Shown here is a 322-nucleotide RNA from Pan troglodytes, a member of the family "Nuclear RNase P". Its family is annotated with tRNA processing, ribonuclease P complex and ribonuclease P activity in the Gene Ontology. The organism belongs to Pan, within Eukaryota. Rfam's curators put it in the seed alignment.
[Rfam]
RNA sequence: AGAGUGAAACUCUUUAGAGAGUCAUGGGGCCAUGAGCUGAGUGCUUCAUGUCACUCCAGCCCCAUGUCCCUUGGGAAGAUCAGAGACUAGGGUCAGAAGCAGCCUUAACAAGGCUCUCUUUGAGUUGCAAGGAGGUGAAUUCCCAGAAAACAGAGCUGCUUGAGGUCAGACAGGGCAGGAGAUGCUGUAGACCCCACCCCUAGGGAGGAAUUCAGGGGAAGUCUCCUAAGUGAGAGCUUGGAACGGAUUCAGUGAAAUGAGCUCAACAGCUAAGGUUAGGUACCCCACAUGGGGUCCUCAUAACUGCUGUCCUCCAUCCUCU
Numbered sequence: 001a002g003a004g005u006g007a008a009a010c011u012c013u014u015u016a017g018a019g020a021g022u023c024a025u026g027g028g029g030c031c032a033u034g035a036g037c038u039g040a041g042u043g044c045u046u047c048a049u050g051u052c053a054c055u056c057c058a059g060c061c062c063c064a065u066g067u068c069c070c071u072u073g074g075g076a077a078g079a080u081c082a083g084a085g086a087c088u089a090g091g092g093u094c095a096g097a098a099g100c101a102g103c104c105u106u107a108a109c110a111a112g113g114c115u116c117u118c119u120u121u122g123a124g125u126u127g128c129a130a131g132g133a134g135g136u137g138a139a140u141u142c143c144c145a146g147a148a149a150a151c152a153g154a155g156c157u158g159c160u161u162g163a164g165g166u167c168a169g170a171c172a173g174g175g176c177a178g179g180a181g182a183u184g185c186u187g188u189a190g191a192c193c194c195c196a197c198c199c200c201u202a203g204g205g206a207g208g209a210a211u212u213c214a215g216g217g218g219a220a221g222u223c224u225c226c227u228a229a230g231u232g233a234g235a236g237c238u239u240g241g242a243a244c245g246g247a248u249u250c251a252g253u254g255a256a257a258u259g260a261g262c263u264c265a266a267c268a269g270c271u272a273a274g275g276u277u278a279g280g281u282a283c284c285c286c287a288c289a290u291g292g293g294g295u296c297c298u299c300a301u302a303a304c305u306g307c308u309g310u311c312c313u314c315c316a317u318c319c320u321c322u
Stems, first nucleotide, its partner, number of pairs: 001322004006314002010274002015269001026071004039056005044050001081309003085305001101115005116134006137250005155237003275301002278298003